Notes
Rfam assigns this 136-nucleotide sequence from Cryptotermes secundus to the family "MIR7725 microRNA precursor family".
[Rfam]
RNA sequence: UUGUCCACCCACCUACACCUUGGUCUUCCCUAUGCUCUCUUUCCUUCUGACUAGACUGCGAUAAAUAAUUAUUUAUCGCAGUCUAGUCAGAAGGAAAGAGAGCAUAGGGAAGACCAAGGUGUAGGUGGGUGGACAA
Numbered sequence: 001u002u003g004u005c006c007a008c009c010c011a012c013c014u015a016c017a018c019c020u021u022g023g024u025c026u027u028c029c030c031u032a033u034g035c036u037c038u039c040u041u042u043c044c045u046u047c048u049g050a051c052u053a054g055a056c057u058g059c060g061a062u063a064a065a066u067a068a069u070u071a072u073u074u075a076u077c078g079c080a081g082u083c084u085a086g087u088c089a090g091a092a093g094g095a096a097a098g099a100g101a102g103c104a105u106a107g108g109g110a111a112g113a114c115c116a117a118g119g120u121g122u123a124g125g126u127g128g129g130u131g132g133a134c135a136a
Stems, first nucleotide, its partner, number of pairs: 002135002005132006012125007020117018039098004044093012057080002060077003064073002
Dot-bracket structure: .((.((((((.(((((((.((((((((((((((((((.((((.((((((((((((.((.(((.((......)).))).)).)))))))))))).)))).)))))))))))))))))).))))))).)))))).)).